A member of the RNA family "DUF3800-IX RNA", 62 nucleotides long. The family's RNA type in Rfam is small RNA. Rfam's curators write: Actinobacteria, Firmicutes (1 example), Nitrospirae, Proteobacteria, Verrucomicrobia (1 example).
RNA sequence: AACCUCAGCCCGAAUUGUCACCGUAUGGUGUGCGUGCCGAAAGGCUAGGGCUGAGGUUUUUA
Dot-bracket structure: (((((((((((....(((((((....)))).))).(((....)))..)))))))))))....